This 88-nucleotide RNA sequence from Micrococcales bacterium KH10 belongs to the Rfam family "ZMP/ZTP riboswitch aptamer (pfl RNA motif)".

RNA sequence: UAUGUGGUUCACAACUGGCGCAGAUGGAUUCAACCAUCAGGAAGUGAACUGCCGUCUCGUCUACGCAUUGUCCGCCUGGGUGCUCGAA
Number, nucleotide and partner (000 for none) at each position: 001u000002a000003u000004g052005u051006g050007g049008u048009u047010c046011a045012c044013a000014a000015c041016u040017g076018g075019c074020g073021c000022a000023g000024a037025u036026g035027g034028a000029u000030u000031c000032a000033a000034c027035c026036a025037u024038c000039a000040g016041g015042a000043a000044g012045u011046g010047a009048a008049c007050u006051g005052c004053c000054g000055u000056c000057u000058c000059g000060u000061c000062u000063a000064c000065g083066c082067a081068u080069u079070g000071u000072c000073c020074g019075c018076c017077u000078g000079g069080g068081u067082g066083c065084u000085c000086g000087a000088a000
Annotation: Pairs were carried over by alignment from the consensus structure, which is taken from published work. Gene Ontology terms of the family: regulation of purine nucleotide biosynthetic process and one-carbon metabolic process.